[Rfam]
RNA sequence: GCAAAUUGAGGUAGUAGGUUGUAUAGUAGUAAUUAUUCAAUCAUACUAUACAAUGUGCUAGCUUUCUUUGC
Dot-bracket structure: (((((..(((.(((((.((((((((((.................)))))))))).))))).)))..)))))
let-7 microRNA precursor family: a 71-nucleotide RNA sequence from Drosophila willistoni. The literature on the family includes a 2001 paper in Cell by Ambros, "microRNAs: tiny regulators with great potential". Its family is annotated with RISC complex and miRNA-mediated post-transcriptional gene silencing in the Gene Ontology. Rfam's curators write: This family represents the microRNAs (miRNA) let-7 and mir-98. let-7 was identified from a study of developmental timing in C. elegans, and was later shown to be part of a much larger class of non-coding RNAs termed miRNAs. Pairs were carried over by alignment from the consensus structure, which was predicted with RNAalifold.